[Rfam]
Nucleotides: 094
Base pairs, nucleotide, nucleotide: 001024002023003022004021005020006019008018009017029054031053032052033051034050035049036048037047038046055091056090057089058088059087061085062084063083064082065081066080067079069078070077071076
Number, partner (000 for none) and nucleotide at each position: 001024g002023c003022c004021g005020a006019g007000g008018c009017c010000u011000u012000u013000c014000a015000a016000a017009g018008g019006c020005u021004u022003g023002g024001c025000g026000u027000u028000g029054c030000g031053g032052g033051c034050g035049c036048c037047g038046g039000c040000g041000g042000g043000u044000g045000u046038c047037c048036g049035g050034c051033g052032c053031u054029g055091u056090c057089a058088u059087g060000u061085c062084c063083a064082u065081g066080u067079u068000g069078c070077u071076c072000a073000a074000u075000g076071g077070a078069g079067g080066a081065u082064a083063u084062g085061g086000u087059u088058a089057u090056g091055a092000g093000a094000u
Overview
A member of the RNA family "Repression of heat shock gene expression (ROSE) element" from Microvirga aerilata, 94 nucleotides long. The family's consensus secondary structure is taken from published work. Taxonomically the source falls in Microvirga (Bacteria, Pseudomonadati, Pseudomonadota, Hyphomicrobiales). About the family: This family represents a 5' UTR cis-regulatory element found in heat shock mRNAs and is known as the ROSE (repression of heat shock gene expression) element. The ROSE element is a negative regulator of heat shock gene expression. Gene Ontology terms of the family: regulation of translation and response to temperature stimulus. The match comes from Rfam's covariance-model search (56 bits).